[Rfam]
RNA sequence: AGGCCUGAAGAGAGAGGCAGGGUCUGAUCCGCAGCCUCCAUGGCAGCUGUUGAUCAGCCAUUGCCUCUCUUUCUCAGGGCU
Numbered sequence: 001a002g003g004c005c006u007g008a009a010g011a012g013a014g015a016g017g018c019a020g021g022g023u024c025u026g027a028u029c030c031g032c033a034g035c036c037u038c039c040a041u042g043g044c045a046g047c048u049g050u051u052g053a054u055c056a057g058c059c060a061u062u063g064c065c066u067c068u069c070u071u072u073c074u075c076a077g078g079g080c081u
Stems, first nucleotide, its partner, number of pairs: 009072012022059001024057006032049004
Source information:
Shown here is an 81-nucleotide sequence from Pipistrellus kuhlii, a member of the family "mir-574 microRNA precursor family". It scores 89 bits against the family's covariance model. The family's consensus secondary structure was predicted with RNAalifold. Lineage of the source: Eukaryota > Eumetazoa > Bilateria > Amniota > Pipistrellus. The family has 6 seed sequences and 4,084 matches in Rfam 15.1. Its family is annotated with miRNA-mediated post-transcriptional gene silencing and RISC complex in the Gene Ontology.